TD-2 RNA: a 98-nucleotide sequence from Treponema phagedenis.
Taxonomically the source falls in Treponema (Bacteria, Spirochaetota, Spirochaetia, Treponemataceae).
The match comes from Rfam's covariance-model search (64 bits).
RNA sequence: ACCGUUAUGGAUGACGGUUGUUUAAUGCGAUAACGAGUUUUGUCCAUGAUAAAACCCAUCGUUCAGCAUCGUACAAGUAUGUACGAUGCUGAACAGAA
Number, nucleotide and partner (000 for none) at each position: 001a018002c017003c016004g015005u014006u013007a000008u000009g000010g000011a000012u000013g006014a005015c004016g003017g002018u001019u000020g000021u000022u000023u000024a000025a000026u000027g000028c000029g000030a000031u000032a000033a000034c000035g057036a000037g055038u054039u053040u052041u051042g050043u049044c048045c000046a000047u000048g044049a043050u042051a041052a040053a039054a038055c037056c000057c035058a000059u000060c000061g094062u093063u092064c091065a090066g089067c088068a087069u086070c085071g084072u083073a082074c081075a000076a000077g000078u000079a000080u000081g074082u073083a072084c071085g070086a069087u068088g067089c066090u065091g064092a063093a062094c061095a000096g000097a000098a000